RNA sequence: CUCUUAUUAAGAGUGGUGGAGGGAUCGGACCCGUUGAAACCCAGCAACCCCCGUCAGGGAAGGUGCUAAUUUCCGCAGCAGUUGUGCUGAAAGAUAAGAA
Numbered sequence: 001c002u003c004u005u006a007u008u009a010a011g012a013g014u015g016g017u018g019g020a021g022g023g024a025u026c027g028g029a030c031c032c033g034u035u036g037a038a039a040c041c042c043a044g045c046a047a048c049c050c051c052c053g054u055c056a057g058g059g060a061a062g063g064u065g066c067u068a069a070u071u072u073c074c075g076c077a078g079c080a081g082u083u084g085u086g087c088u089g090a091a092a093g094a095u096a097a098g099a100a
Stems, first nucleotide, its partner, number of pairs: 002099007013042001015041003021032003026075004043067004048063002050059003071092001076089005